[Rfam]
RNA sequence: AUGCCUUGUGAUAAAGGCCUCCCUAUUUUAUCAUAAUUAAAUUAAUUUAUUUAUCAAAAUAAAUUAUGAUAUAAU
Number, nucleotide and partner (000 for none) at each position: 001a000002u000003g000004c000005c000006u000007u000008g000009u000010g000011a000012u000013a000014a000015a000016g000017g000018c000019c000020u000021c000022c000023c000024u000025a000026u000027u000028u000029u000030a070031u069032c068033a067034u066035a065036a064037u063038u000039a000040a000041a000042u000043u000044a000045a000046u000047u000048u000049a000050u000051u000052u000053a000054u000055c000056a000057a000058a000059a000060u000061a000062a000063a037064u036065u035066a034067u033068g032069a031070u030071a000072u000073a000074a000075u000